Shown here is a 139-nucleotide RNA sequence from Paenalicyclobacillus ferrooxydans, a member of the family "c-di-AMP riboswitch aptamer (ydaO/yuaA leader)". It scores 46 bits against the family's covariance model. This family represents a conserved RNA structure found upstream of the ydaO and yuaA genes in Bacillus subtilis and related genes in other bacteria.

RNA sequence: CGCUAACUACUGCCGAACCUCACAAUGGUGAGCACGGGGGAACUAAAGGCGUCCAUACGGACUUGGGGUGAAUCACGAUUGUGACGGGUGGUCCUUUGUACCCGAACCCGACAAACUCGUCGCAAACGACGGUGGUUCG
Numbered sequence: 001c002g003c004u005a006a007c008u009a010c011u012g013c014c015g016a017a018c019c020u021c022a023c024a025a026u027g028g029u030g031a032g033c034a035c036g037g038g039g040g041a042a043c044u045a046a047a048g049g050c051g052u053c054c055a056u057a058c059g060g061a062c063u064u065g066g067g068g069u070g071a072a073u074c075a076c077g078a079u080u081g082u083g084a085c086g087g088g089u090g091g092u093c094c095u096u097u098g099u100a101c102c103c104g105a106a107c108c109c110g111a112c113a114a115a116c117u118c119g120u121c122g123c124a125a126a127c128g129a130c131g132g133u134g135g136u137u138c139g
Base pairs, nucleotide, nucleotide: 011124012123013122019032020031021030022029034120035119036118037117038116044065045064066109067108068107074083075082076081086103087102088101089100